[Rfam]
Nucleotides: 083
Stems, first nucleotide, its partner, number of pairs: 001082007010025003027043005059075005
Number, partner (000 for none) and nucleotide at each position: 001082g002081c003080c004079g005078g006077u007076g008000u009000g010025g011024c012023g013000g014000a015000a016000u017000g018000g019000c020000a021000g022000a023012c024011g025010c026000g027043g028042a029041g030040c031039a032000c033000u034000c035000a036000a037000a038000a039031u040030g041029c042028u043027u044000u045000g046000u047000c048000c049000g050000a051000g052000a053000g054000g055000a056000c057000g058000u059075g060074u061073g062072g063071g064000u065000u066000c067000g068000a069000c070000c071063c072062c073061c074060a075059c076007c077006a078005c079004c080003g081002g082001c083000a